The record is a 53-nucleotide sequence from Roseospirillum parvum, which matches "serC leader" in Rfam.
[Rfam]
RNA sequence: GAGCGGGCCACGGUCCCCCAACGGGCCGCGACCCUUCUGCAAGGAAGGGAGAC
Numbered sequence: 001g002a003g004c005g006g007g008c009c010a011c012g013g014u015c016c017c018c019c020a021a022c023g024g025g026c027c028g029c030g031a032c033c034c035u036u037c038u039g040c041a042a043g044g045a046a047g048g049g050a051g052a053c
Stems, first nucleotide, its partner, number of pairs: 011028006033048006
This family is a putative regulatory RNA structure that is found upstream of the serC-serA operon in some alpha-proteobacteria. The final stem of the structure overlaps the ribosome binding site of the serC reading frame. Its family is annotated with regulation of gene expression in the Gene Ontology. For this family Rfam cites "Evidence for a second class of S-adenosylmethionine riboswitches and other regulatory RNA motifs in alpha-proteobacteria" (Corbino et al., Genome Biol, 2005). It is annotated as a cis-regulatory leader. NCBI's taxonomy places the organism under Bacteria, Pseudomonadota, Alphaproteobacteria, Rhodospirillales, Roseospirillum.